[Rfam]
RNA sequence: GCCACGGCUAGGCUUAGCGGCUGAAUACCGGUCACCCGAACCGGCCGCCGUGGCACUUUCAUUCAUUCGGG
Numbered sequence: 001g002c003c004a005c006g007g008c009u010a011g012g013c014u015u016a017g018c019g020g021c022u023g024a025a026u027a028c029c030g031g032u033c034a035c036c037c038g039a040a041c042c043g044g045c046c047g048c049c050g051u052g053g054c055a056c057u058u059u060c061a062u063u064c065a066u067u068c069g070g071g
Stems, first nucleotide, its partner, number of pairs: 001054008011022004028044004035071006

Notes
int-alpA RNA: a 71-nucleotide sequence from Stieleria marina. Rfam classes the family as a small RNA. The source organism's lineage runs through Bacteria, Planctomycetota, Pirellulales, Pirellulaceae and Stieleria. The family has 167 seed sequences and 577 matches in Rfam 15.1. A search with the family's covariance model found it, with a score of 46 bits. Rfam's curators write: Acidobacteria (1 example), Planctomycetes (1 example), Proteobacteria.